[Rfam]
RNA sequence: GGGUCAUGUGAUGAGAAACCAUAUGCAUCUCACGACGGUCGUCUGAGACACUUAGUGUGUAAUGGUGCAGCCAUAUUUUUUCUGAUGGCC
Numbered sequence: 001g002g003g004u005c006a007u008g009u010g011a012u013g014a015g016a017a018a019c020c021a022u023a024u025g026c027a028u029c030u031c032a033c034g035a036c037g038g039u040c041g042u043c044u045g046a047g048a049c050a051c052u053u054a055g056u057g058u059g060u061a062a063u064g065g066u067g068c069a070g071c072c073a074u075a076u077u078u079u080u081u082c083u084g085a086u087g088g089c090c
Base pairs, nucleotide, nucleotide: 001090002089004087049057050056051055
The family of this 90-nucleotide RNA from Zizania palustris is "Small nucleolar RNA Z161/Z228". Its family is annotated with RNA processing and nucleolus in the Gene Ontology. It is annotated as a C/D-box small nucleolar RNA. The family's consensus secondary structure was predicted with PFOLD. Taxonomically the source falls in Zizania (Eukaryota, Embryophyta, Tracheophyta, Petrosaviidae). Rfam 15.1 lists 630 matches to the family in 214 species. A reference for the family is Chen et al. (2003), "The high diversity of snoRNAs in plants: identification and comparative study of 120 snoRNA genes from Oryza sativa", Nucleic Acids Res.